A member of the RNA family "Aggregatibacter sRNA 22" from Gallibacterium salpingitidis, 98 nucleotides long. NCBI's taxonomy places the organism under Bacteria, Gammaproteobacteria, Pasteurellales, Pasteurellaceae, Gallibacterium. Rfam classes the family as a small RNA.
RNA sequence: CAGCAAAGACAAAAAGCGUUAGCUUUUUGAACGUUGCUUGCAACGACCCGUAGGGUGAACAAGUGAACGAAGUUCACUUGCGAAUAAAAGUAGGUCGC
Number, nucleotide and partner (000 for none) at each position: 001c000002a000003g000004c000005a000006a000007a000008g000009a000010c029011a028012a027013a026014a025015a024016g023017c022018g000019u000020u000021a000022g017023c016024u015025u014026u013027u012028u011029g010030a000031a000032c045033g044034u043035u042036g041037c000038u000039u000040g000041c036042a035043a034044c033045g032046a056047c055048c054049c053050g000051u000052a000053g049054g048055g047056u046057g000058a000059a000060c080061a079062a078063g077064u076065g075066a074067a073068c000069g000070a000071a000072g000073u067074u066075c065076a064077c063078u062079u061080g060081c000082g000083a000084a095085u094086a000087a000088a000089a000090g000091u000092a000093g000094g085095u084096c000097g000098c000